[Rfam]
RNA sequence: GCACUGGCGUAGCUCAGGGGUUACUUCUACAUAACAAUUCAGCUCUCCCGCCAUGGGAUCGACCCCCGGCGUUGUCCAGUGUUUUC
Numbered sequence: 001g002c003a004c005u006g007g008c009g010u011a012g013c014u015c016a017g018g019g020g021u022u023a024c025u026u027c028u029a030c031a032u033a034a035c036a037a038u039u040c041a042g043c044u045c046u047c048c049c050g051c052c053a054u055g056g057g058a059u060c061g062a063c064c065c066c067c068g069g070c071g072u073u074g075u076c077c078a079g080u081g082u083u084u085u086c
Stems, first nucleotide, its partner, number of pairs: 002081006012070003017066004026062002029059001
Shown here is an 86-nucleotide sequence from Sinocyclocheilus anshuiensis, a member of the family "Vault RNA". The family's RNA type in Rfam is non-coding RNA gene. From the family's description: This family of RNAs are found as part of the enigmatic vault ribonucleoprotein complex. The complex consists of a major vault protein (MVP), two minor vault proteins (VPARP and TEP1), and several small untranslated RNA molecules. It has been suggested that the vault complex is involved in drug resistance. NCBI's taxonomy places the organism under Eukaryota, Bilateria, Vertebrata, Actinopteri, Sinocyclocheilus.